[Rfam]
RNA sequence: AUCAAUCUUCAGGGCAGGGUGAAAUUCCCGACCGGCGGUAUUGAAAUGUUAAUUUCUGAGCCCGCGAGCCUUUUUAGGCAUGAUUUGGUGAGAUUCCAAAGCCGACAGUACAGUCUGGAUGGGAGAAGAUGGAG
Numbered sequence: 001a002u003c004a005a006u007c008u009u010c011a012g013g014g015c016a017g018g019g020u021g022a023a024a025u026u027c028c029c030g031a032c033c034g035g036c037g038g039u040a041u042u043g044a045a046a047u048g049u050u051a052a053u054u055u056c057u058g059a060g061c062c063c064g065c066g067a068g069c070c071u072u073u074u075u076a077g078g079c080a081u082g083a084u085u086u087g088g089u090g091a092g093a094u095u096c097c098a099a100a101g102c103c104g105a106c107a108g109u110a111c112a113g114u115c116u117g118g119a120u121g122g123g124a125g126a127a128g129a130u131g132g133a134g
Base pairs, nucleotide, nucleotide: 003132005130006129007128008127009126010125017029018028019027031114032113033104034103035065036064037063038062060102061101070078084100085099086098087097088096106117107116108115
Dot-bracket structure: ..(.((((((......(((.......))).[[((((((.....................[[))))....(.......).....(((((.......)))))]])).(((....]]))).......)))))).)..
The family of this 134-nucleotide RNA from Schinkia azotoformans is "FMN riboswitch aptamer (RFN element)". It scores 123 bits against the family's covariance model.